[Rfam]
RNA sequence: CGAUAAAAAUGACAAUGCAAGUAUCUCAUGCUGUUGCCCGAACCCACUCGGGCUUUUUUU
Numbered sequence: 001c002g003a004u005a006a007a008a009a010u011g012a013c014a015a016u017g018c019a020a021g022u023a024u025c026u027c028a029u030g031c032u033g034u035u036g037c038c039c040g041a042a043c044c045c046a047c048u049c050g051g052g053c054u055u056u057u058u059u060u
Stems, first nucleotide, its partner, number of pairs: 004017002020032005036053006

The record is a 60-nucleotide RNA from Marienburgvirus BP4795, which matches "Anti GcvB sRNA" in Rfam. NCBI's taxonomy places the organism under Viruses, Duplodnaviria, Caudoviricetes, Marienburgvirus, Marienburgvirus BP4795. The family's RNA type in Rfam is small RNA. The match comes from Rfam's covariance-model search (57 bits). Rfam links the family to the GO term positive regulation of translation, ncRNA-mediated.